[Rfam]
RNA: mir-9223 microRNA precursor family
Organism: Myotis lucifugus
RNA sequence: GGUGGUUCUCGGGUGACGCUCCCUGGAAUCUGGCUCCCUUCUCUCUGGUUCCAGGGUGCAUCACUGGAGAACUGCU
Numbered sequence: 001g002g003u004g005g006u007u008c009u010c011g012g013g014u015g016a017c018g019c020u021c022c023c024u025g026g027a028a029u030c031u032g033g034c035u036c037c038c039u040u041c042u043c044u045c046u047g048g049u050u051c052c053a054g055g056g057u058g059c060a061u062c063a064c065u066g067g068a069g070a071a072c073u074g075c076u
Stems, first nucleotide, its partner, number of pairs: 002075002005072006012065005019058001021056003025052006032045002